This 57-nucleotide sequence from Microbacterium saperdae belongs to the Rfam family "msiK RNA". The family's consensus secondary structure is taken from published work. The match comes from Rfam's covariance-model search (62 bits). The family's RNA type in Rfam is cis-regulatory element.

[Rfam]
RNA sequence: CGCCGCUUCCAUCACAACGGAUCGUCCGGCACGUACCUGCCGGUGAAGGAGAAACAC
Numbered sequence: 001c002g003c004c005g006c007u008u009c010c011a012u013c014a015c016a017a018c019g020g021a022u023c024g025u026c027c028g029g030c031a032c033g034u035a036c037c038u039g040c041c042g043g044u045g046a047a048g049g050a051g052a053a054a055c056a057c
Base pairs, nucleotide, nucleotide: 008050009049010048012046013045014044026043027042028041029040030039031038
Dot-bracket structure: .......(((.(((...........((((((......))))))))).))).......